[Rfam]
RNA: T-box leader
RNA sequence: AUAAAAACUGUGAUUGGGAAGAGUAUUUUAGGACCGGUUAUAAGAGAGGAAAGUCCUUGGCUGAAAGACUUUCUUAGCUAGGCUAAUUGAAAACCACCCAUGAGUUCUGUCUUGAAGAAGUUACUUUUAACUUAUAGGGAACAGCGUUUGCUGCGUUAAAGCUUUAAGUGGGUUUAUGCCAAUCUGGGUGGAACCGCGGGAAUUUAUCUCUCGUCCCUGUU
Numbered sequence: 001a002u003a004a005a006a007a008c009u010g011u012g013a014u015u016g017g018g019a020a021g022a023g024u025a026u027u028u029u030a031g032g033a034c035c036g037g038u039u040a041u042a043a044g045a046g047a048g049g050a051a052a053g054u055c056c057u058u059g060g061c062u063g064a065a066a067g068a069c070u071u072u073c074u075u076a077g078c079u080a081g082g083c084u085a086a087u088u089g090a091a092a093a094c095c096a097c098c099c100a101u102g103a104g105u106u107c108u109g110u111c112u113u114g115a116a117g118a119a120g121u122u123a124c125u126u127u128u129a130a131c132u133u134a135u136a137g138g139g140a141a142c143a144g145c146g147u148u149u150g151c152u153g154c155g156u157u158a159a160a161g162c163u164u165u166a167a168g169u170g171g172g173u174u175u176a177u178g179c180c181a182a183u184c185u186g187g188g189u190g191g192a193a194c195c196g197c198g199g200g201a202a203u204u205u206a207u208c209u210c211u212c213g214u215c216c217c218u219g220u221u
Stems, first nucleotide, its partner, number of pairs: 007105002015100004028086004037078003051072003108143002110140004145155003171180003186217003196214005
Dot-bracket structure: ......((......((((.........((((.....(((...........(((................)))...)))....))))..........))))...))..((((((.......................)))).)).(((.....)))...............(((....))).....(((.......(((((.........))))))))....